This 68-nucleotide sequence from Mycobacterium asiaticum belongs to the Rfam family "ASdes TB sRNA".
For this family Rfam cites "Identification of small RNAs in Mycobacterium tuberculosis" (Arnvig and Young, Mol Microbiol, 2009).
A search with the family's covariance model found it, with a score of 56 bits.
The base pairs follow the family's consensus structure, which is taken from published work.

RNA sequence: UUUUCGACCGGGUCGACCUCACGGGUCACCACCAGAUAUUGCCGCAACGCGAUGGCGUGCAGGUGUUC
Number, nucleotide and partner (000 for none) at each position: 001u000002u000003u000004u063005c062006g000007a000008c059009c000010g000011g030012g029013u028014c000015g027016a026017c025018c024019u000020c000021a000022c000023g000024g018025g017026u016027c015028a013029c012030c011031a000032c000033c000034a000035g056036a000037u054038a053039u000040u052041g000042c000043c049044g048045c000046a000047a000048c044049g043050c000051g000052a040053u038054g037055g000056c035057g000058u000059g008060c000061a000062g005063g004064u000065g000066u000067u000068c000